Rfam assigns this 32-nucleotide RNA to the family "S4-Flavobacteria ribosomal protein leader".
For this family Rfam cites "Discovery of 20 novel ribosomal leader candidates in bacteria and archaea" (Eckert and Weinberg, BMC Microbiol, 2020).
The family's RNA type in Rfam is cis-regulatory leader.
RNA sequence: AGUCAUCGAAGGAACGACCUUAAUUCAUGACC
Number, nucleotide and partner (000 for none) at each position: 001a000002g031003u030004c029005a028006u027007c000008g026009a021010a020011g019012g018013a000014a000015c000016g000017a000018c012019c011020u010021u009022a000023a000024u000025u000026c008027a006028u005029g004030a003031c002032c000